Description: This 90-nucleotide sequence from Cyclopterus lumpus belongs to the Rfam family "Small nucleolar SNORD12/SNORD106". The source organism's lineage runs through Eukaryota, Metazoa, Actinopterygii, Neopterygii and Cyclopterus. By type it is a C/D-box small nucleolar RNA. Its Rfam clan is "SNORD12 clan". On this family, see Huttenhofer et al., EMBO J 2001: "RNomics: an experimental approach that identifies 201 candidates for novel, small, non-messenger RNAs in mouse". Rfam 15.1 lists 2,264 matches to the family in 650 species.
[Rfam]
RNA sequence: GUGUGGUUAAUGAUGAACAAUUCUUUCCCCGACUUAUCGACUAUGAUGAUACACUUAUGCAAAAUAAGCCAAUUAUUCUGAAACUACAAC
Number, nucleotide and partner (000 for none) at each position: 001g000002u088003g087004u086005g085006g084007u083008u082009a000010a000011u000012g000013a000014u000015g000016a000017a000018c000019a000020a000021u000022u000023c000024u000025u000026u000027c000028c000029c000030c000031g000032a000033c000034u000035u000036a000037u000038c000039g000040a000041c000042u000043a000044u000045g000046a000047u000048g000049a000050u000051a000052c000053a000054c000055u000056u000057a000058u000059g000060c000061a000062a000063a000064a000065u000066a000067a000068g000069c000070c000071a000072a000073u000074u000075a000076u000077u000078c000079u000080g000081a000082a008083a007084c006085u005086a004087c003088a002089a000090c000